This 82-nucleotide RNA sequence from Trichonephila clavipes belongs to the Rfam family "mir-981 microRNA precursor family". It scores 51 bits against the family's covariance model.
[Rfam]
RNA sequence: GUUGGCUCUGUCCGGGUUUCGCGACAACUGAACACUUAUUUAAUCAGUUGUUCGUUGUCGUUGAAACCUGAACGAGGCCUUC
Numbered sequence: 001g002u003u004g005g006c007u008c009u010g011u012c013c014g015g016g017u018u019u020c021g022c023g024a025c026a027a028c029u030g031a032a033c034a035c036u037u038a039u040u041u042a043a044u045c046a047g048u049u050g051u052u053c054g055u056u057g058u059c060g061u062u063g064a065a066a067c068c069u070g071a072a073c074g075a076g077g078c079c080u081u082c
Base pairs, nucleotide, nucleotide: 001082004079005078006077013070014069015068016067017066018065019064020063021062030053031052032051033050034049

Record summary: Rfam 15.1 lists 180 matches to the family in 170 species.